[Rfam]
RNA sequence: AGCGAGAGUAGAAGCGUUCAGCGGCCGAAACAGCCGCCCGGAAAUUGCUCUUGAA
Number, nucleotide and partner (000 for none) at each position: 001a000002g000003c000004g000005a051006g050007a049008g048009u047010a046011g000012a000013a000014g000015c040016g000017u000018u042019c041020a000021g037022c036023g035024g034025c033026c000027g000028a000029a000030a000031c000032a000033g025034c024035c023036g022037c021038c000039c000040g015041g019042a018043a000044a000045u000046u010047g009048c008049u007050c006051u005052u000053g000054a000055a000
Rfam assigns this 55-nucleotide sequence to the family "Xanthine riboswitch aptamer (NMT1 RNA)". On this family, see Yu and Breaker, RNA 2020: "A bacterial riboswitch class senses xanthine and uric acid to regulate genes associated with purine oxidation". Rfam's curators put it in the seed alignment.